[Rfam]
RNA: U1A polyadenylation inhibition element (PIE)
RNA sequence: CCACACAGCAUUGUACCCAGAGUCUGUCCCAGACAUUGCACCUGGUGCUGUUAGGUGCAAUUAAAGUAGUUU
Numbered sequence: 001c002c003a004c005a006c007a008g009c010a011u012u013g014u015a016c017c018c019a020g021a022g023u024c025u026g027u028c029c030c031a032g033a034c035a036u037u038g039c040a041c042c043u044g045g046u047g048c049u050g051u052u053a054g055g056u057g058c059a060a061u062u063a064a065a066g067u068a069g070u071u072u
Stems, first nucleotide, its partner, number of pairs: 005051005017045004022034005